[Rfam]
A member of the RNA family "Group II catalytic intron D1-D4-4" from Paenibacillus roseus, 138 nucleotides long. Group II introns are found in rRNA, tRNA and mRNA of organelles in fungi, plants and protists, and also in mRNA in bacteria.
RNA sequence: UAGUCCGUGAAAGUCCGACCAAGAGAAAAGACGAAACUCUUGUAGCCUGAGAGGCACCGCGGAACGAAAGUGAACCGGAGAAGCCCUCUGACAAAACGUUUUCUAGGAACGUCGGCAAAACUCCAGGUUGUAACGUAC
Numbered sequence: 001u002a003g004u005c006c007g008u009g010a011a012a013g014u015c016c017g018a019c020c021a022a023g024a025g026a027a028a029a030g031a032c033g034a035a036a037c038u039c040u041u042g043u044a045g046c047c048u049g050a051g052a053g054g055c056a057c058c059g060c061g062g063a064a065c066g067a068a069a070g071u072g073a074a075c076c077g078g079a080g081a082a083g084c085c086c087u088c089u090g091a092c093a094a095a096a097c098g099u100u101u102u103c104u105a106g107g108a109a110c111g112u113c114g115g116c117a118a119a120a121c122u123c124c125a126g127g128u129u130g131u132a133a134c135g136u137a138c
Base pairs, nucleotide, nucleotide: 020042021041022040023039024038050089051088052087053086054085055080057078058077059076064071065070096112097111098110099109100108101107115131116130117129
A search with the family's covariance model found it, with a score of 100 bits. Lineage of the source: Bacteria > Bacillati > Bacillota > Caryophanales > Paenibacillus. Gene Ontology term of the family: Group II intron splicing.